[Rfam]
Nucleotides: 070
Stems, first nucleotide, its partner, number of pairs: 006065001009062001012059005017050005026040005
Number, partner (000 for none) and nucleotide at each position: 001000u002000a003000a004000a005000u006065u007000g008000c009062u010000g011000u012059c013058c014057c015056a016055g017050g018049g019048g020047g021046g022000g023000a024000g025000g026040g027039c028038c029037g030036c031000u032000a033000u034000u035000u036030g037029c038028g039027g040026c041000a042000a043000g044000u045000a046021c047020c048019u049018c050017u051000u052000c053000a054000a055016c056015u057014g058013g059012g060000c061000a062009g063000u064000a065006a066000a067000g068000a069000c070000c
A member of the RNA family "Hepatitis C virus stem-loop VII", 70 nucleotides long.
Pairs were carried over by alignment from the consensus structure, which was predicted with RNAfold.
On this family, see Pirakitikulr et al., Mol Cell 2016: "The Coding Region of the HCV Genome Contains a Network of Regulatory RNA Structures".